[Rfam]
RNA sequence: CUACGUCCCGGUGCAAGUACUCAAGGAUAGGCCAUUGAGAUUGUACACAGCCUAUCCUGGAUUACUUGAACCGGGUCGCAG
Dot-bracket structure: .(.((.((((((.((((((.((.(((((((((.................))))))))).)).)))))).)))))).)).).
The family of this 81-nucleotide RNA from Pantherophis guttatus is "mir-26 microRNA precursor family". The match comes from Rfam's covariance-model search (66 bits). Pairs were carried over by alignment from the consensus structure, which was predicted with RNAalifold. Its family is annotated with RISC complex and miRNA-mediated post-transcriptional gene silencing in the Gene Ontology. Lineage of the source: Eukaryota > Metazoa > Deuterostomia > Dipnotetrapodomorpha > Pantherophis.